The family of this 112-nucleotide RNA from Lederbergia lenta is "PyrR binding site".
This family represents the PyrR binding site and terminator structure. This RNA structure is found upstream of a variety of genes involved in pyrimidine biosynthesis and transport. The alignment also includes a portion of the antiterminator structure.
The family's RNA type in Rfam is cis-regulatory element.
The family's consensus secondary structure is taken from published work.
RNA sequence: UAUACCUUUAAUUACGGUCCAGAGAGGCCGAAAAGGGCGACUAGAUAGGUUUGUUUUUUAUCUAUGUAUACACUUAUGCCCUUUUGUCCUCUGUGACGAAAGGGCAUUUAUU
Numbered sequence: 001u002a003u004a005c006c007u008u009u010a011a012u013u014a015c016g017g018u019c020c021a022g023a024g025a026g027g028c029c030g031a032a033a034a035g036g037g038c039g040a041c042u043a044g045a046u047a048g049g050u051u052u053g054u055u056u057u058u059u060a061u062c063u064a065u066g067u068a069u070a071c072a073c074u075u076a077u078g079c080c081c082u083u084u085u086g087u088c089c090u091c092u093g094u095g096a097c098g099a100a101a102g103g104g105c106a107u108u109u110a111u112u
Stems, first nucleotide, its partner, number of pairs: 005036005015030005047075004052070003056066001058064001076107013